[Rfam]
This 92-nucleotide RNA from Kingella potus belongs to the Rfam family "Neisseria metabolic switch regulator b (RcoF1/NgncR163)". The source organism's lineage runs through Bacteria, Betaproteobacteria, Neisseriales, Neisseriaceae and Kingella.
RNA sequence: GCGUUGGACGGCUGGCAACAGCCGUUUGACAGUUUCUCCUCUAUUUCUCCUUUGUAGACUUGGCACACAUUCGCAAGAAUGUGUGCAUUUUU
Numbered sequence: 001g002c003g004u005u006g007g008a009c010g011g012c013u014g015g016c017a018a019c020a021g022c023c024g025u026u027u028g029a030c031a032g033u034u035u036c037u038c039c040u041c042u043a044u045u046u047c048u049c050c051u052u053u054g055u056a057g058a059c060u061u062g063g064c065a066c067a068c069a070u071u072c073g074c075a076a077g078a079a080u081g082u083g084u085g086c087a088u089u090u091u092u
Base pairs, nucleotide, nucleotide: 003030004029005028006027007026008025009024010023011022040058041057042056043055044054063086064085065084066083067082068081069080070079071078072077
Dot-bracket structure: ..(((((((((..........))))))))).........(((((.........)))))....((((((((((....))))))))))......